[Rfam]
RNA: Acido-Lenti-1 RNA
RNA sequence: CCCAGGGCUGCACCCCGGGCUGGGAUAUUUUGCCCCUUCAGGGCU
Numbered sequence: 001c002c003c004a005g006g007g008c009u010g011c012a013c014c015c016c017g018g019g020c021u022g023g024g025a026u027a028u029u030u031u032g033c034c035c036c037u038u039c040a041g042g043g044c045u
Stems, first nucleotide, its partner, number of pairs: 001019003005015003032044004